This 107-nucleotide sequence from Clostridium amylolyticum belongs to the Rfam family "SAM riboswitch aptamer (S box leader)". The SAM riboswitch is found upstream of a number of genes which code for proteins involved in methionine or cysteine biosynthesis in Gram-positive bacteria. It scores 87 bits against the family's covariance model.

[Rfam]
RNA sequence: GUCUUAUCAAGAGAGGUGGAGGGACUGGCCCUGUGAAGCCCGGCAACCAGUAUUUAUUUAUAAAUACAAUGGUGCCAAUUCCAACAGCGUAAGCUGGGAGAUGAGAA
Numbered sequence: 001g002u003c004u005u006a007u008c009a010a011g012a013g014a015g016g017u018g019g020a021g022g023g024a025c026u027g028g029c030c031c032u033g034u035g036a037a038g039c040c041c042g043g044c045a046a047c048c049a050g051u052a053u054u055u056a057u058u059u060a061u062a063a064a065u066a067c068a069a070u071g072g073u074g075c076c077a078a079u080u081c082c083a084a085c086a087g088c089g090u091a092a093g094c095u096g097g098g099a100g101a102u103g104a105g106a107a
Stems, first nucleotide, its partner, number of pairs: 002106007013041001015040003021031003026083003042076004047072002050067005080099001085096004